Source information: The record is a 105-nucleotide RNA from Rosa chinensis, which matches "MIR398 microRNA precursor family" in Rfam. Pairs were carried over by alignment from the consensus structure, which was predicted with WAR. On this family, see Sunkar and Zhu, Plant Cell 2004: "Novel and stress-regulated microRNAs and other small RNAs from Arabidopsis".
RNA sequence: GUUCAUCCCAGAGGAGUGACUCUAAGAACACAGGGUGGUGUUUGACCACUUUUACAUAUAUGGCUAAUGCAUCUUGUGUUCUCAGGUCACCCCUUUGAGACACAC
Numbered sequence: 001g002u003u004c005a006u007c008c009c010a011g012a013g014g015a016g017u018g019a020c021u022c023u024a025a026g027a028a029c030a031c032a033g034g035g036u037g038g039u040g041u042u043u044g045a046c047c048a049c050u051u052u053u054a055c056a057u058a059u060a061u062g063g064c065u066a067a068u069g070c071a072u073c074u075u076g077u078g079u080u081c082u083c084a085g086g087u088c089a090c091c092c093c094u095u096u097g098a099g100a101c102a103c104a105c
Stems, first nucleotide, its partner, number of pairs: 007099001011095004016090004025082009
The source organism's lineage runs through Eukaryota, Euphyllophyta, Gunneridae, Rosoideae and Rosa. Rfam links the family to the GO terms RISC complex and miRNA-mediated post-transcriptional gene silencing.